[Rfam]
Record summary
The family of this 71-nucleotide RNA from Penelope pileata is "Small nucleolar RNA SNORD58".
RNA sequence: UUGCAGUGAUGACUUUCUUAGGACACCUUUGGAACACCCAUGAAAAAAAAAGCUUAUUAUUUCUGAGCAAC
Numbered sequence: 001u002u003g004c005a006g007u008g009a010u011g012a013c014u015u016u017c018u019u020a021g022g023a024c025a026c027c028u029u030u031g032g033a034a035c036a037c038c039c040a041u042g043a044a045a046a047a048a049a050a051a052g053c054u055u056a057u058u059a060u061u062u063c064u065g066a067g068c069a070a071c
Base pairs, nucleotide, nucleotide: 001070002069003068004067
Rfam's curators write: snoRNA U58 is found in introns 1, 3 and 6 of the ribosomal protein RPL17 gene in humans.
A search with the family's covariance model found it, with a score of 75 bits.
On this family, see Galardi et al., Mol Cell Biol 2002: "Purified box C/D snoRNPs are able to reproduce site-specific 2'-O-methylation of target RNA in vitro".